[Rfam]
RNA sequence: GCCUGGCCUAGGUGCUGCCUGAUCCGCAGUGCUGAAAACCUGAUCCCUUCUCAGGCUGGCCGGGCACCCCACGAAGG
Numbered sequence: 001g002c003c004u005g006g007c008c009u010a011g012g013u014g015c016u017g018c019c020u021g022a023u024c025c026g027c028a029g030u031g032c033u034g035a036a037a038a039c040c041u042g043a044u045c046c047c048u049u050c051u052c053a054g055g056c057u058g059g060c061c062g063g064g065c066a067c068c069c070c071a072c073g074a075a076g077g
Base pairs, nucleotide, nucleotide: 001065002064003063004062005061006060007059008058011033012032013031014030015029016028017027018026039055040054041053042052046077047076048075049074050073
RNA: int-alpA RNA